This 598-nucleotide part of an RNA from Aurelia sp. Incheon-2006 belongs to the Rfam family "Eukaryotic large subunit ribosomal RNA".

RNA sequence: CGGGGAAAGAAGACCCUGUUGAGCUUGACUCUAGUCUGAUUCUGUGAAAAGACAUGAGAGGUGUAGGAUAAGUGGGAGCAGCAAUGCGACAGUGAAAUACCACUACUCUUAUCGUUUUUUUACUUAUUCGGUUGAGCGGAAGCGGGCCUCACGGCUCACUUUCUGGCAUUAAGGCCUCGUUGGCAGGUCGAUCCGUGCCGAAGACACUAUCAGGUCGGGAGUUUGGCUGGGGCGGCACAUCUGUUAAAUGAUAACGCAGGUGUCCUAAGGUGAGCUCAAUGAGAACGGAAAUCUCAUGUAGAACAAAAGGGUAAAAGCUCACUUGAUUUUGAUUUUCAGUAUGAAUACAAACUGUGAAAGCAUGGCCUAUCGAUCCUUUAGUCUUUAGGAGUUUUAAGCUAGAGGUGUCAGAAAAGUUACCACAGGGAUAACUGGCUUGUGGCAGCCAAGCGUUCAUAGCGACGUUGCUUUUUGAUCCUUCGAUGUCGGCUCUUCCUAUCAUUGUGAAGCAGAAUUCACCAAGCGCCGGAUUGUUCACCCGCUAAUAGGGAACGUGAGCUGGGUUUAGACCGUCGUGAGACAGGUUAGUUUUACCCUA
Number, nucleotide and partner (000 for none) at each position: 001c000002g000003g597004g596005g595006a000007a592008a591009g000010a000011a000012g000013a000014c000015c426016c425017u424018g423019u000020u422021g421022a418023g417024c416025u415026u414027g000028a222029c221030u220031c219032u000033a000034g000035u214036c213037u212038g211039a210040u209041u000042c000043u000044g123045u122046g121047a120048a119049a118050a117051g116052a115053c114054a112055u111056g110057a109058g108059a107060g106061g000062u000063g000064u000065a000066g000067g000068a000069u000070a000071a104072g103073u102074g101075g100076g000077a000078g087079c086080a000081g000082c000083a000084a000085u000086g079087c078088g000089a000090c000091a000092g000093u000094g000095a000096a000097a000098u000099a000100c075101c074102a073103c072104u071105a000106c060107u059108c058109u057110u056111a055112u054113c000114g053115u052116u051117u050118u049119u048120u047121u046122a045123c044124u000125u000126a000127u202128u201129c200130g199131g198132u000133u000134g000135a000136g000137c195138g194139g193140a192141a000142g000143c000144g000145g156146g155147c154148c153149u000150c000151a000152c000153g148154g147155c146156u145157c000158a000159c000160u000161u000162u000163c000164u000165g000166g000167c000168a000169u000170u000171a000172a000173g189174g188175c187176c186177u185178c000179g000180u000181u000182g000183g000184c000185a177186g176187g175188u174189c173190g000191a000192u140193c139194c138195g137196u000197g000198c131199c130200g129201a128202a127203g000204a000205c000206a000207c000208u000209a040210u039211c038212a037213g036214g035215u000216c000217g000218g000219g031220a030221g029222u028223u000224u000225g238226g236227c235228u234229g000230g000231g000232g000233c000234g228235g227236c226237a000238c225239a261240u260241c259242u258243g257244u256245u000246a000247a000248a000249u000250g000251a000252u000253a000254a000255c000256g244257c243258a242259g241260g240261u239262g000263u000264c365265c364266u000267a000268a000269g000270g322271u321272g320273a319274g318275c317276u302277c301278a000279a297280u296281g295282a294283g293284a292285a000286c000287g000288g000289a000290a000291a000292u284293c283294u282295c281296a280297u279298g000299u000300a000301g277302a276303a312304c311305a000306a000307a000308a000309g000310g000311g304312u303313a000314a000315a000316a000317g275318c274319u273320c272321a271322c270323u000324u000325g000326a000327u351328u350329u349330u000331g000332a346333u345334u344335u343336u000337c000338a000339g000340u000341a000342u000343g335344a334345a333346u332347a000348c000349a329350a328351a327352c000353u362354g361355u360356g000357a000358a000359a000360g355361c354362a353363u000364g265365g264366c000367c000368u000369a000370u000371c000372g000373a000374u000375c000376c404377u403378u402379u401380a400381g399382u000383c000384u398385u397386u396387a395388g000389g000390a000391g000392u000393u000394u000395u387396a386397a385398g384399c381400u380401a379402g378403a377404g376405g000406u000407g000408u000409c000410a000411g000412a000413a000414a026415a025416g024417u023418u022419a000420c000421c021422a020423c018424a017425g016426g015427g000428a000429u000430a000431a000432c000433u000434g000435g476436c000437u474438u000439g473440u000441g469442g468443c467444a466445g465446c464447c000448a000449a000450g460451c459452g000453u000454u000455c000456a000457u000458a000459g451460c450461g000462a000463c000464g446465u445466u444467g443468c442469u441470u000471u000472u000473u439474g437475a000476u435477c000478c000479u000480u000481c000482g000483a000484u000485g000486u000487c562488g560489g559490c558491u557492c554493u551494u550495c549496c548497u547498a000499u000500c525501a000502u000503u000504g519505u518506g517507a516508a515509g000510c000511a000512g000513a000514a000515u508516u507517c506518a505519c504520c000521a000522a000523g000524c000525g500526c000527c541528g540529g539530a000531u537532u000533g000534u000535u000536c000537a531538c000539c529540c528541g527542c000543u000544a000545a000546u000547a497548g496549g495550g494551a493552a000553c000554g492555u000556g000557a491558g490559c489560u488561g000562g487563g000564u000565u000566u000567a000568g586569a585570c584571c583572g581573u580574c579575g000576u000577g000578a000579g574580a573581c572582a000583g571584g570585u569586u568587a000588g000589u000590u000591u008592u007593a000594c000595c005596c004597u003598a000
NCBI's taxonomy places the organism under Eukaryota, Metazoa, Eumetazoa, Scyphozoa, Aurelia.